[Rfam]
RNA sequence: GUUCGGGUGCCGCUGAAUCACUCCUCGGAGUGAAUCGGGGAACCACCGAGUAUUGGGGUGAAUCCGCGCUCAUCGCGCGGUAGGGCGACUUCCGGCCCGAACCCGUCAGCUAACCCGGUAAGCGGCUUGAUGGAAGAAAG
Numbered sequence: 001g002u003u004c005g006g007g008u009g010c011c012g013c014u015g016a017a018u019c020a021c022u023c024c025u026c027g028g029a030g031u032g033a034a035u036c037g038g039g040g041a042a043c044c045a046c047c048g049a050g051u052a053u054u055g056g057g058g059u060g061a062a063u064c065c066g067c068g069c070u071c072a073u074c075g076c077g078c079g080g081u082a083g084g085g086c087g088a089c090u091u092c093c094g095g096c097c098c099g100a101a102c103c104c105g106u107c108a109g110c111u112a113a114c115c116c117g118g119u120a121a122g123c124g125g126c127u128u129g130a131u132g133g134a135a136g137a138a139a140g
Stems, first nucleotide, its partner, number of pairs: 011124004018033005034119006044055002056104003064080004083098004
RNA: c-di-AMP riboswitch aptamer (ydaO/yuaA leader)
Organism: Actinorhabdospora filicis